[Rfam]
RNA: speF leader
RNA sequence: CGUUGGCCCUCCAAAGGUCAACACCGAAGAGGCUUGUUUAUCAUUGCCAGGCGUGCGGACGGGAAUCUCCCAUCCAAUCCAAGGCAGCAUCGUCGGGUGAAGAGCCCAUCUCACGCUUCUCGUGUCUCCAUCGCACGAAGCGGGAUGCAUCUUCCCU
Numbered sequence: 001c002g003u004u005g006g007c008c009c010u011c012c013a014a015a016g017g018u019c020a021a022c023a024c025c026g027a028a029g030a031g032g033c034u035u036g037u038u039u040a041u042c043a044u045u046g047c048c049a050g051g052c053g054u055g056c057g058g059a060c061g062g063g064a065a066u067c068u069c070c071c072a073u074c075c076a077a078u079c080c081a082a083g084g085c086a087g088c089a090u091c092g093u094c095g096g097g098u099g100a101a102g103a104g105c106c107c108a109u110c111u112c113a114c115g116c117u118u119c120u121c122g123u124g125u126c127u128c129c130a131u132c133g134c135a136c137g138a139a140g141c142g143g144g145a146u147g148c149a150u151c152u153u154c155c156c157u
Stems, first nucleotide, its partner, number of pairs: 002022007031048003055136001057134001099119004